The family of this 321-nucleotide RNA sequence from Myiagra hebetior is "7SK RNA". Rfam classes the family as a non-coding RNA gene. The match comes from Rfam's covariance-model search (140 bits). About the family: 7SK was discovered as an abundant small nuclear RNA in the mid-70s but a possible function has only recently been suggested.

RNA sequence: GGACAUGAGGGCUAUCUGGCUGUGUGAUCUGAUAUGCCAUUGAUUGCACAGGCUGAUUUGACUGGUCUGGCUACCUUAGGCGGGUGUCCCCUUUCUUCCUCAGCACUCCAUGUGUGUUCCUCCUGGACCUAUGUGCUUGGUUAAUGAGGACAGCCUCCCCUACAGACAUGGUGCUGUUCACUGGCCAAGGGUGUGUGGUAGCUGUGCUCCCCUGCUGGAAGCUCUAAGUAAGCUCAAGGCCGGUUUGUAGCAGGGUAGUCAAACAUCCAGUACUAAAGACACAUCCAUAUGAGAAGCUCCAUGCAGCAAUUUGCCAGCGGU
Numbered sequence: 001g002g003a004c005a006u007g008a009g010g011g012c013u014a015u016c017u018g019g020c021u022g023u024g025u026g027a028u029c030u031g032a033u034a035u036g037c038c039a040u041u042g043a044u045u046g047c048a049c050a051g052g053c054u055g056a057u058u059u060g061a062c063u064g065g066u067c068u069g070g071c072u073a074c075c076u077u078a079g080g081c082g083g084g085u086g087u088c089c090c091c092u093u094u095c096u097u098c099c100u101c102a103g104c105a106c107u108c109c110a111u112g113u114g115u116g117u118u119c120c121u122c123c124u125g126g127a128c129c130u131a132u133g134u135g136c137u138u139g140g141u142u143a144a145u146g147a148g149g150a151c152a153g154c155c156u157c158c159c160c161u162a163c164a165g166a167c168a169u170g171g172u173g174c175u176g177u178u179c180a181c182u183g184g185c186c187a188a189g190g191g192u193g194u195g196u197g198g199u200a201g202c203u204g205u206g207c208u209c210c211c212c213u214g215c216u217g218g219a220a221g222c223u224c225u226a227a228g229u230a231a232g233c234u235c236a237a238g239g240c241c242g243g244u245u246u247g248u249a250g251c252a253g254g255g256u257a258g259u260c261a262a263a264c265a266u267c268c269a270g271u272a273c274u275a276a277a278g279a280c281a282c283a284u285c286c287a288u289a290u291g292a293g294a295a296g297c298u299c300c301a302u303g304c305a306g307c308a309a310u311u312u313g314c315c316a317g318c319g320g321u
Stems, first nucleotide, its partner, number of pairs: 001109003006102006014093001018091002024088001027085005033079001037070003042067004046062001117171002121166002123140004129135001141162001148158003201264001203262001207258002210255006228248005287321002293314001296310001298308001300306001